[Rfam]
RNA sequence: UAUAUUUCUAUGCUGAAUCAAACUUGAGCGGGGGAACCAUUUCUGUGAUGAAAUUGGUCACUAGGGGUGAAUCCUUAAAAUAGGUAGGGCGACUCUCACGUCCGAAUCCGACAGCUAACCUCGUAAGCGUAUAGGGAGAAGGA
Numbered sequence: 001u002a003u004a005u006u007u008c009u010a011u012g013c014u015g016a017a018u019c020a021a022a023c024u025u026g027a028g029c030g031g032g033g034g035a036a037c038c039a040u041u042u043c044u045g046u047g048a049u050g051a052a053a054u055u056g057g058u059c060a061c062u063a064g065g066g067g068u069g070a071a072u073c074c075u076u077a078a079a080a081u082a083g084g085u086a087g088g089g090c091g092a093c094u095c096u097c098a099c100g101u102c103c104g105a106a107u108c109c110g111a112c113a114g115c116u117a118a119c120c121u122c123g124u125a126a127g128c129g130u131a132u133a134g135g136g137a138g139a140a141g142g143a
Base pairs, nucleotide, nucleotide: 011129012128013127014126018027019026020025028124029123030122031121032120033119038064065109066108067107073084074083075082087103088102089101090100

The record is a 143-nucleotide RNA from Tepidibacillus sp. HK-1, which matches "c-di-AMP riboswitch aptamer (ydaO/yuaA leader)" in Rfam. The match comes from Rfam's covariance-model search (96 bits). The base pairs follow the family's consensus structure. From the family's description: This family represents a conserved RNA structure found upstream of the ydaO and yuaA genes in Bacillus subtilis and related genes in other bacteria. The ydaO/yuaA element is thought to act as a genetic 'off' switch for the ydaO and yuaA genes in its native state. Its family is annotated with regulation of gene expression and cyclic-di-AMP binding in the Gene Ontology.